Overview
This 73-nucleotide sequence from Eschrichtius robustus belongs to the Rfam family "Small nucleolar RNA SNORD113/SNORD114 family". Rfam links the family to the GO terms RNA processing and nucleolus.
RNA sequence: UGGAUCGAUGAUGACCGCUGGUGGAGUACGAGUCAUGGAUGAUGACUACUUCAUUCUGGAAUCUGAGGUCCAA
Numbered sequence: 001u002g003g004a005u006c007g008a009u010g011a012u013g014a015c016c017g018c019u020g021g022u023g024g025a026g027u028a029c030g031a032g033u034c035a036u037g038g039a040u041g042a043u044g045a046c047u048a049c050u051u052c053a054u055u056c057u058g059g060a061a062u063c064u065g066a067g068g069u070c071c072a073a
Stems, first nucleotide, its partner, number of pairs: 002071005